[Rfam]
This 156-nucleotide sequence from Carpinus fangiana belongs to the Rfam family "U12 minor spliceosomal RNA". NCBI's taxonomy places the organism under Eukaryota, Streptophytina, Embryophyta, Gunneridae, Carpinus.
RNA sequence: UAGUCCUAAACUAAUGAGUAGGGAAAAAAAAAGUGCACGGCGGGAGCUGCUCGCAGUGCCCACAGUAACAUGCGCAAGAAUUUAUGGAGGGGGUGAUAAGCUGGCCAAGUGCUGACACUGCUUACUUUGCAGAACUCGCUUGUACGGGCCUUCCUA
Numbered sequence: 001u002a003g004u005c006c007u008a009a010a011c012u013a014a015u016g017a018g019u020a021g022g023g024a025a026a027a028a029a030a031a032a033g034u035g036c037a038c039g040g041c042g043g044g045a046g047c048u049g050c051u052c053g054c055a056g057u058g059c060c061c062a063c064a065g066u067a068a069c070a071u072g073c074g075c076a077a078g079a080a081u082u083u084a085u086g087g088a089g090g091g092g093g094u095g096a097u098a099a100g101c102u103g104g105c106c107a108a109g110u111g112c113u114g115a116c117a118c119u120g121c122u123u124a125c126u127u128u129g130c131a132g133a134a135c136u137c138g139c140u141u142g143u144a145c146g147g148g149c150c151u152u153c154c155u156a
Stems, first nucleotide, its partner, number of pairs: 004023005033054003038049003056075004091155003098151001100149003104145001106142002109139003118132004

For this family Rfam cites "Pre-mRNA splicing: the discovery of a new spliceosome doubles the challenge" (Tarn and Steitz, Trends Biochem Sci, 1997). It is annotated as a spliceosomal small nuclear RNA.